[Rfam]
Overview: The record is an 87-nucleotide sequence from Ooceraea biroi, which matches "mir-282 microRNA precursor family" in Rfam. A reference for the family is Li et al. (2009), "Direct sequencing and expression analysis of a large number of miRNAs in Aedes aegypti and a multi-species survey of novel mosquito miRNAs", BMC Genomics. A search with the family's covariance model found it, with a score of 72 bits.
RNA sequence: CGAGUAACUUGAUUUAGCCUCUCCUAGGCUUUGUCUGUAUGGGAGGACAGAGACAUAGCCUAGAAUAGGUUAGGUCAGGGCUCGUUC
Numbered sequence: 001c002g003a004g005u006a007a008c009u010u011g012a013u014u015u016a017g018c019c020u021c022u023c024c025u026a027g028g029c030u031u032u033g034u035c036u037g038u039a040u041g042g043g044a045g046g047a048c049a050g051a052g053a054c055a056u057a058g059c060c061u062a063g064a065a066u067a068g069g070u071u072a073g074g075u076c077a078g079g080g081c082u083c084g085u086u087c
Stems, first nucleotide, its partner, number of pairs: 012075009027060004032055005
Dot-bracket structure: ...........(((((((((......((((.(((((..............))))).))))......)))))))))............